[Rfam]
RNA sequence: CGGGCGGUGAAGUCCCAGGUCGGGGCGUCCUCCAGCAGGUACUGCUCGCCGAACUGGUCGCCGUCGGCGAGCACGUCGAGCCGGUCGGUGCUGCCGUAGCGGCCGGUCGCGAUCCGGCUCACCCGGCCGUGCACGAUCAGGUACAGGCGGUCGACGGUGUCGCCCUCCGAGACCAGGAUCUGGCCCGGCUCGAACUCCCGCUGCUCGAAGCGGCCGGCGAGGUCGGUGAGCACCUCCUCGUCGUCGAAGCCGCGCAGCAGGGCCAGCUCGCCGAGCUCGCGGGGGAUGACCUGGACGCGCGAACCCGUCUGGUGGAACUCGAUGCGGCCGUCGCCGAGGGUGUAGGUCAACCGCCGGUUGACCCGGUAGACGCCGCCCUCGGUCUGCACCCAGGGCAGGGUCUUGAGCACCCAGCGGGAGCUCUUGCCCUGCAUCUGCGGGGCGGAUUUGGUGGUGGUGGCCAGAUUCCGCGCGGCGGCGGUGCUCAGGCUCUUCUGCUGACCGGUACG
Numbered sequence: 001c002g003g004g005c006g007g008u009g010a011a012g013u014c015c016c017a018g019g020u021c022g023g024g025g026c027g028u029c030c031u032c033c034a035g036c037a038g039g040u041a042c043u044g045c046u047c048g049c050c051g052a053a054c055u056g057g058u059c060g061c062c063g064u065c066g067g068c069g070a071g072c073a074c075g076u077c078g079a080g081c082c083g084g085u086c087g088g089u090g091c092u093g094c095c096g097u098a099g100c101g102g103c104c105g106g107u108c109g110c111g112a113u114c115c116g117g118c119u120c121a122c123c124c125g126g127c128c129g130u131g132c133a134c135g136a137u138c139a140g141g142u143a144c145a146g147g148c149g150g151u152c153g154a155c156g157g158u159g160u161c162g163c164c165c166u167c168c169g170a171g172a173c174c175a176g177g178a179u180c181u182g183g184c185c186c187g188g189c190u191c192g193a194a195c196u197c198c199c200g201c202u203g204c205u206c207g208a209a210g211c212g213g214c215c216g217g218c219g220a221g222g223u224c225g226g227u228g229a230g231c232a233c234c235u236c237c238u239c240g241u242c243g244u245c246g247a248a249g250c251c252g253c254g255c256a257g258c259a260g261g262g263c264c265a266g267c268u269c270g271c272c273g274a275g276c277u278c279g280c281g282g283g284g285g286a287u288g289a290c291c292u293g294g295a296c297g298c299g300c301g302a303a304c305c306c307g308u309c310u311g312g313u314g315g316a317a318c319u320c321g322a323u324g325c326g327g328c329c330g331u332c333g334c335c336g337a338g339g340g341u342g343u344a345g346g347u348c349a350a351c352c353g354c355c356g357g358u359u360g361a362c363c364c365g366g367u368a369g370a371c372g373c374c375g376c377c378c379u380c381g382g383u384c385u386g387c388a389c390c391c392a393g394g395g396c397a398g399g400g401u402c403u404u405g406a407g408c409a410c411c412c413a414g415c416g417g418g419a420g421c422u423c424u425u426g427c428c429c430u431g432c433a434u435c436u437g438c439g440g441g442g443c444g445g446a447u448u449u450g451g452u453g454g455u456g457g458u459g460g461c462c463a464g465a466u467u468c469c470g471c472g473c474g475g476c477g478g479c480g481g482u483g484c485u486c487a488g489g490c491u492c493u494u495c496u497g498c499u500g501a502c503c504g505g506u507a508c509g
Stems, first nucleotide, its partner, number of pairs: 006390004011385002014382002018328001020322005026314001032312004038306002043303001045301001047299003051233001054230002059228005065111002075103001077101002082096004118221003122217002127212001130209001131206001134203002140198002145196002148192002153189001155187003160178002165171002235295003240290006250282005256277003260271001262269001329342004353377001355375003363369001391431007399423002403418002407415001437476002440473001442471005447465006477508001480503003486497003

The record is a 509-nucleotide sequence from Nocardiopsis flavescens, which matches "Saccharopolyspora sRNA 350" in Rfam. The family's consensus secondary structure was predicted with RNAfold. By type it is an antisense RNA.